[Rfam]
RNA: Vault RNA
Organism: Podarcis muralis
RNA sequence: GAGCCAGCUUCAGCCCAGCGGUUCCAUCGACCAAACGCGUUGCUUGGAAUCCGCCGAUCGCUUCCAGCGGUUUGAGACCCGCGGCGCUGCCUGGUUUUUUU
Numbered sequence: 001g002a003g004c005c006a007g008c009u010u011c012a013g014c015c016c017a018g019c020g021g022u023u024c025c026a027u028c029g030a031c032c033a034a035a036c037g038c039g040u041u042g043c044u045u046g047g048a049a050u051c052c053g054c055c056g057a058u059c060g061c062u063u064c065c066a067g068c069g070g071u072u073u074g075a076g077a078c079c080c081g082c083g084g085c086g087c088u089g090c091c092u093g094g095u096u097u098u099u100u101u
Stems, first nucleotide, its partner, number of pairs: 002096006013085002016083001018082004027075004